This 88-nucleotide RNA sequence from Spinacia oleracea belongs to the Rfam family "Small nucleolar RNA snoR8a". Rfam links the family to the GO terms nucleolus and RNA processing. Rfam classes the family as a C/D-box small nucleolar RNA. Lineage of the source: Eukaryota > Euphyllophyta > eudicotyledons > Gunneridae > Spinacia. A search with the family's covariance model found it, with a score of 61 bits.
RNA sequence: AAUAGCAAUGAUUCUAAAAUUCCUCGUUCCAAAUUGCUAUAGCCAUGACAUGAUAGACUCAUCUAUACACCCAUGGAAUAUGGGUGUA
Dot-bracket structure: ..((.((.............................................................................))))
Numbered sequence: 001a002a003u004a005g006c007a008a009u010g011a012u013u014c015u016a017a018a019a020u021u022c023c024u025c026g027u028u029c030c031a032a033a034u035u036g037c038u039a040u041a042g043c044c045a046u047g048a049c050a051u052g053a054u055a056g057a058c059u060c061a062u063c064u065a066u067a068c069a070c071c072c073a074u075g076g077a078a079u080a081u082g083g084g085u086g087u088a
Stems, first nucleotide, its partner, number of pairs: 003088002006086002